[Rfam]
RNA sequence: CGAGUAAGUCGGAUAGUCGCGGAUACCUUUUUAGGUAGACGAGGAAAGUCCGAGCUCCGUAGAGCAGGGUGCUGGGUAAUACCCAGUGGAGGCGACUCCAAGGAAAGUGCAACAGAGAUAUACCGCCACAAUUUAUUUGUGGUAAGGGUGGAAAGGUGAGGUAAGAGCUCACCAGCAACUAGGCGACUAGUUGGCUAUGUAAACCCCACCUGGAGCAAGACCAAGUAGGGACGUGAAAAGGGGGUUGCUCGCUCCCGUCCCGUUGGUAGGUCGCUUGAGCCUACUGGCAACAGUAGGCCUAGAUAGAUGACUAUCUAAGACAGAACUCGGCUUACAGACUUGCUCGUUUA
Number, nucleotide and partner (000 for none) at each position: 001c346002g345003a344004g343005u342006a341007a340008g339009u338010c337011g335012g315013a314014u313015a312016g311017u310018c309019g000020c041021g040022g000023a000024u037025a036026c035027c034028u033029u000030u000031u000032u000033a028034g027035g026036u025037a024038g000039a000040c021041g020042a000043g000044g000045a000046a333047a332048g331049u000050c330051c329052g328053a327054g326055c215056u214057c213058c212059g000060u000061a000062g250063a249064g248065c247066a000067g211068g210069g209070u208071g207072c086073u085074g084075g083076g082077u000078a000079a000080u000081a000082c076083c075084c074085a073086g072087u101088g099089g098090a097091g096092g000093c000094g000095a000096c091097u090098c089099c088100a000101a087102g206103g205104a000105a000106a000107g204108u203109g200110c199111a198112a000113c000114a000115g000116a000117g000118a000119u000120a000121u000122a000123c147124c146125g143126c142127c141128a140129c139130a138131a137132u000133u000134u000135a000136u000137u131138u130139g129140u128141g127142g126143u125144a000145a000146g124147g123148g000149u000150g000151g000152a000153a000154a000155g173156g172157u171158g170159a169160g168161g000162u000163a000164a000165g000166a000167g000168c160169u159170c158171a157172c156173c155174a000175g195176c193177a192178a191179c190180u189181a188182g187183g000184c000185g000186a000187c182188u181189a180190g179191u178192u177193g176194g000195c175196u000197a000198u111199g110200u109201a000202a000203a108204c107205c103206c102207c071208a070209c069210c068211u067212g058213g057214a056215g055216c000217a000218a000219g272220a271221c270222c269223a000224a000225g000226u000227a000228g000229g000230g000231a263232c262233g261234u000235g259236a258237a000238a000239a000240g000241g255242g254243g253244g252245u251246u000247g065248c064249u063250c062251g245252c244253u243254c242255c241256c000257g000258u236259c235260c000261c233262g232263u231264u000265g000266g000267u000268a000269g222270g221271u220272c219273g000274c000275u000276u000277g000278a000279g298280c297281c296282u295283a294284c293285u292286g291287g000288c000289a000290a000291c286292a285293g284294u283295a282296g281297g280298c279299c000300u000301a000302g000303a000304u000305a000306g000307a000308u000309g018310a017311c016312u015313a014314u013315c012316u000317a000318a000319g000320a000321c000322a000323g000324a000325a000326c054327u053328c052329g051330g050331c048332u047333u046334a000335c011336a000337g010338a009339c008340u007341u006342g005343c004344u003345c002346g001347u000348u000349u000350a000
Bacterial RNase P class A: a 350-nucleotide RNA from Tepidibacter thalassicus. The family is grouped with related families in Rfam's "RNaseP clan". It scores 315 bits against the family's covariance model. The source organism's lineage runs through Bacteria, Bacillati, Clostridia, Peptostreptococcaceae and Tepidibacter thalassicus.